A member of the RNA family "Vertebrate telomerase RNA" from Monodelphis domestica, 495 nucleotides long. Rfam links the family to the GO terms telomere maintenance via telomerase, telomerase activity and telomerase catalytic core complex. Telomerase is a ribonucleoprotein reverse transcriptase that synthesises telomeric DNA. Telomerase RNAs differ greatly in sequence and structure between vertebrates, ciliates and yeasts, but they share a 5' pseudoknot structure close to the template sequence. Vertebrate telomerase RNAs have a 3' H/ACA snoRNA-like domain. The base pairs follow the family's consensus structure, which is taken from published work. Clan: Telomerase clan. A search with the family's covariance model found it, with a score of 137 bits. On this family, see Chen et al., Cell 2000: "Secondary structure of vertebrate telomerase RNA".

[Rfam]
RNA sequence: AGUGUCGAGCGGCGGGUUUGUCCGUCCUGGUUCUUCUAACCCUAAAUUCGUGCAGACGGUGGAGGCUCCUCCUGGGUGGCGCUCGCUGUUUUGGUGGCUGACUUUCAGCGGGCAGGAGGAGUCGGAGCGGAGCCGGAGAUAUGCGUAAAAAACGUCAGCCGAGGUCGGGCGGCCCCGCUCGUGGCCCGUCCGCCCCGUCCGGGCUCGGCCCCGGCCCGAAUCCCCUGGGAACGCCCCCCGCCGGCCCGCGCUAGCCCUCGGAGCCCCAGCUGCCCGCGAACAGAGGCGGCGGCCGUCUCGGGGCCCCUGCGUGCAGGAGCACCCACUGCGGUCGCCAAGAGUUGGGCUCUGUCAGCCUCUGGGUGCUCGGGGUGCCGGGGGCACGCCCCAAGGCCAGGCGUGGGGCGGGGGCGCAGGGAGAGUAAACCUGAGCAACCCCCUGCUGGGCACUCCCUCGAGUCAUGGGAAUUGCCCCUGGGCACAGCUCACACACCC
Numbered sequence: 001a002g003u004g005u006c007g008a009g010c011g012g013c014g015g016g017u018u019u020g021u022c023c024g025u026c027c028u029g030g031u032u033c034u035u036c037u038a039a040c041c042c043u044a045a046a047u048u049c050g051u052g053c054a055g056a057c058g059g060u061g062g063a064g065g066c067u068c069c070u071c072c073u074g075g076g077u078g079g080c081g082c083u084c085g086c087u088g089u090u091u092u093g094g095u096g097g098c099u100g101a102c103u104u105u106c107a108g109c110g111g112g113c114a115g116g117a118g119g120a121g122u123c124g125g126a127g128c129g130g131a132g133c134c135g136g137a138g139a140u141a142u143g144c145g146u147a148a149a150a151a152a153c154g155u156c157a158g159c160c161g162a163g164g165u166c167g168g169g170c171g172g173c174c175c176c177g178c179u180c181g182u183g184g185c186c187c188g189u190c191c192g193c194c195c196c197g198u199c200c201g202g203g204c205u206c207g208g209c210c211c212c213g214g215c216c217c218g219a220a221u222c223c224c225c226u227g228g229g230a231a232c233g234c235c236c237c238c239c240g241c242c243g244g245c246c247c248g249c250g251c252u253a254g255c256c257c258u259c260g261g262a263g264c265c266c267c268a269g270c271u272g273c274c275c276g277c278g279a280a281c282a283g284a285g286g287c288g289g290c291g292g293c294c295g296u297c298u299c300g301g302g303g304c305c306c307c308u309g310c311g312u313g314c315a316g317g318a319g320c321a322c323c324c325a326c327u328g329c330g331g332u333c334g335c336c337a338a339g340a341g342u343u344g345g346g347c348u349c350u351g352u353c354a355g356c357c358u359c360u361g362g363g364u365g366c367u368c369g370g371g372g373u374g375c376c377g378g379g380g381g382c383a384c385g386c387c388c389c390a391a392g393g394c395c396a397g398g399c400g401u402g403g404g405g406c407g408g409g410g411g412c413g414c415a416g417g418g419a420g421a422g423u424a425a426a427c428c429u430g431a432g433c434a435a436c437c438c439c440c441u442g443c444u445g446g447g448c449a450c451u452c453c454c455u456c457g458a459g460u461c462a463u464g465g466g467a468a469u470u471g472c473c474c475c476u477g478g479g480c481a482c483a484g485c486u487c488a489c490a491c492a493c494c495c
Stems, first nucleotide, its partner, number of pairs: 006181006014175003018172003023167002026164002066121005081113008097159006103152003185417002188414002191411001256372006265363005288336009300324003338350004430487004436479003445474005451467004